Shown here is a 102-nucleotide RNA from Bacillus cereus, a member of the family "Purine riboswitch aptamer". Rfam's curators put it in the seed alignment.
[Rfam]
RNA sequence: AGAAACAAUAAUAUAAGACCUCAUAUAAUCGCGGGGAUAUGGCCUGCAAGUCUCUACCUAACGACCGUUAUUCGUUAGACUAUGAGGGAAAGUCACUCGGUA
Numbered sequence: 001a002g003a004a005a006c007a008a009u010a011a012u013a014u015a016a017g018a019c020c021u022c023a024u025a026u027a028a029u030c031g032c033g034g035g036g037a038u039a040u041g042g043c044c045u046g047c048a049a050g051u052c053u054c055u056a057c058c059u060a061a062c063g064a065c066c067g068u069u070a071u072u073c074g075u076u077a078g079a080c081u082a083u084g085a086g087g088g089a090a091a092g093u094c095a096c097u098c099g100g101u102a
Stems, first nucleotide, its partner, number of pairs: 019087007029049001031047005058078007